[Rfam]
RNA sequence: UGCAACCCGCAUAAAAGGUAGUCCCCCAACCCGGGGCGACUUUCCUAUAUUCCGAAUUC
Numbered sequence: 001u002g003c004a005a006c007c008c009g010c011a012u013a014a015a016a017g018g019u020a021g022u023c024c025c026c027c028a029a030c031c032c033g034g035g036g037c038g039a040c041u042u043u044c045c046u047a048u049a050u051u052c053c054g055a056a057u058u059c
Stems, first nucleotide, its partner, number of pairs: 017041003021037005

A member of the RNA family "Plastid-psbN 5UTR RNA" from Aegilops tauschii, 59 nucleotides long. The family's RNA type in Rfam is cis-regulatory element. The family's consensus secondary structure was predicted with LocARNA. Rfam's curators write: Plastid psbN is a non-coding RNA (ncRNA) recognised in plastids. It was reported as a conserved 11 stem-loop in the prime untranslated region (5UTR) of psbN genes. The family has 63 seed sequences and 2,345 matches in Rfam 15.1. The match comes from Rfam's covariance-model search (56 bits). The organism belongs to Aegilops tauschii, within Eukaryota. A reference for the family is Richter et al. (2023), "Retrograde signaling in plants: A critical review focusing on the GUN pathway and beyond", Plant Commun.